[Rfam]
A member of the RNA family "Selenocysteine insertion sequence 1" from Coturnix japonica, 67 nucleotides long.
By type it is a cis-regulatory element.
The organism belongs to Coturnix, within Eukaryota.
The match comes from Rfam's covariance-model search (41 bits).
The base pairs follow the family's consensus structure, which is taken from published work.
RNA sequence: CCCGCAGUGUGACGCCCCCCCCCGAAACCCCUUAAAGGAGUGGGGGGGGGCUGAGGACCCCCGCGGG
Numbered sequence: 001c002c003c004g005c006a007g008u009g010u011g012a013c014g015c016c017c018c019c020c021c022c023c024g025a026a027a028c029c030c031c032u033u034a035a036a037g038g039a040g041u042g043g044g045g046g047g048g049g050g051c052u053g054a055g056g057a058c059c060c061c062c063g064c065g066g067g
Stems, first nucleotide, its partner, number of pairs: 001067005014051010029040001031038001